[Rfam]
RNA sequence: UUUGCAGUGGCAAAUCGAUACGACCAGCUCCUGUCGAACUCCCCCAGGGCCGGAAGGCAGCAAGGGUAGAUAGUCGUAGCGGUGCGAUGUUGGUUUGCCAUUUU
Numbered sequence: 001u002u003u004g005c006a007g008u009g010g011c012a013a014a015u016c017g018a019u020a021c022g023a024c025c026a027g028c029u030c031c032u033g034u035c036g037a038a039c040u041c042c043c044c045c046a047g048g049g050c051c052g053g054a055a056g057g058c059a060g061c062a063a064g065g066g067u068a069g070a071u072a073g074u075c076g077u078a079g080c081g082g083u084g085c086g087a088u089g090u091u092g093g094u095u096u097g098c099c100a101u102u103u104u
Stems, first nucleotide, its partner, number of pairs: 008100013021086002023083002
The record is a 104-nucleotide sequence from Reichenbachiella faecimaris, which matches "Bacteroidales small SRP" in Rfam. The family's RNA type in Rfam is non-coding RNA gene. Taxonomically the source falls in Reichenbachiella (Bacteria, Bacteroidota, Cytophagia, Reichenbachiellaceae). For this family Rfam cites "A high-resolution transcriptome map identifies small RNA regulation of metabolism in the gut microbe Bacteroides thetaiotaomicron" (Ryan et al., Nat Commun, 2020). A search with the family's covariance model found it, with a score of 84 bits. Pairs were carried over by alignment from the consensus structure, which is taken from published work.